[Rfam]
RNA sequence: CGGUCGGCAGUAACCGAGGCGUCGCUGCUCCCCGAGGAGUGCUAAACCUGCCG
Numbered sequence: 001c002g003g004u005c006g007g008c009a010g011u012a013a014c015c016g017a018g019g020c021g022u023c024g025c026u027g028c029u030c031c032c033c034g035a036g037g038a039g040u041g042c043u044a045a046a047c048c049u050g051c052c053g
Base pairs, nucleotide, nucleotide: 001016002015003014004013028039029038030037031036
RNA: COG3860 RNA
Organism: Hoeflea prorocentri